[Rfam]
RNA sequence: GGCGGCGGCCGUGACUGGCGAAGGUGGGAUCGACCACCGGGGAGCGGCCGGUAGUCCCUGUGAUGCGCGCCGCCCGCCUGGGCGCCUGGG
Numbered sequence: 001g002g003c004g005g006c007g008g009c010c011g012u013g014a015c016u017g018g019c020g021a022a023g024g025u026g027g028g029a030u031c032g033a034c035c036a037c038c039g040g041g042g043a044g045c046g047g048c049c050g051g052u053a054g055u056c057c058c059u060g061u062g063a064u065g066c067g068c069g070c071c072g073c074c075c076g077c078c079u080g081g082g083c084g085c086c087u088g089g090g
Stems, first nucleotide, its partner, number of pairs: 004052001006050007015041002017078004024037004067085005
Rfam assigns this 90-nucleotide RNA sequence from Cellulomonas sp. PhB143 to the family "ZMP/ZTP riboswitch aptamer (pfl RNA motif)". A search with the family's covariance model found it, with a score of 51 bits. The family's consensus secondary structure is taken from published work.